The record is a 115-nucleotide RNA from Peptoclostridium litorale, which matches "FMN riboswitch aptamer (RFN element)" in Rfam.
Its family is annotated with FMN binding in the Gene Ontology.
RNA sequence: CAUAAUCUUCAGGGCAGGGUGAGAUUCCCGACCGGCGGUUAAAGUCCGCGAGCCGAUAGGCUGAACUGGUGAGAUUCCAGUACCGACAGUAAAGUCUGGAUGGAAGAAGGUUUAU
Dot-bracket structure: ...(((((((......(((.......))).[[((((((.....[[))))..(((....)))...(((((.......)))))]])).(((....]]))).......)))))))...
Numbered sequence: 001c002a003u004a005a006u007c008u009u010c011a012g013g014g015c016a017g018g019g020u021g022a023g024a025u026u027c028c029c030g031a032c033c034g035g036c037g038g039u040u041a042a043a044g045u046c047c048g049c050g051a052g053c054c055g056a057u058a059g060g061c062u063g064a065a066c067u068g069g070u071g072a073g074a075u076u077c078c079a080g081u082a083c084c085g086a087c088a089g090u091a092a093a094g095u096c097u098g099g100a101u102g103g104a105a106g107a108a109g110g111u112u113u114a115u
Stems, first nucleotide, its partner, number of pairs: 004112007017029003031095002033085002035049004044083002052061003065081005087098003
The family's consensus secondary structure is taken from published work.